The record is a 90-nucleotide RNA from Kineococcus radiotolerans, which matches "Glycine riboswitch aptamer" in Rfam. Taxonomically the source falls in Kineococcus radiotolerans (Bacteria, Bacillati, Kineosporiales, Kineococcus).
[Rfam]
RNA sequence: CCGCUCUGGAAAGCAGGACCCCACGGUCCUCACCGACGGGGAAAGCCUCGCUGCGCGGGGUGAAGCUCUCAGGUCCCGCGACAGAGGGGG
Numbered sequence: 001c002c003g004c005u006c007u008g009g010a011a012a013g014c015a016g017g018a019c020c021c022c023a024c025g026g027u028c029c030u031c032a033c034c035g036a037c038g039g040g041g042a043a044a045g046c047c048u049c050g051c052u053g054c055g056c057g058g059g060g061u062g063a064a065g066c067u068c069u070c071a072g073g074u075c076c077c078g079c080g081a082c083a084g085a086g087g088g089g090g
Base pairs, nucleotide, nucleotide: 001089002088004086005085006084007083008082015030016029017028018027032074033073034072035070036069039068040067041066045061046060047059048058049057